Description: Rfam assigns this 55-nucleotide RNA from Acyrthosiphon pisum to the family "mir-3017 microRNA precursor family". A reference for the family is Legeai et al. (2010), "Bioinformatic prediction, deep sequencing of microRNAs and expression analysis during phenotypic plasticity in the pea aphid, Acyrthosiphon pisum", BMC Genomics. Pairs were carried over by alignment from the consensus structure, which was predicted with RNAalifold. Its family is annotated with miRNA-mediated post-transcriptional gene silencing and RISC complex in the Gene Ontology. Rfam 15.1 lists 58 matches to the family in 5 species.
[Rfam]
RNA sequence: CCGUGUUCUAUGAUAGACUCGGCUGGCGCCUGCCGGUCUGUCGCAGAACACGGCA
Numbered sequence: 001c002c003g004u005g006u007u008c009u010a011u012g013a014u015a016g017a018c019u020c021g022g023c024u025g026g027c028g029c030c031u032g033c034c035g036g037u038c039u040g041u042c043g044c045a046g047a048a049c050a051c052g053g054c055a
Stems, first nucleotide, its partner, number of pairs: 001053009011043004016038003020035003025030001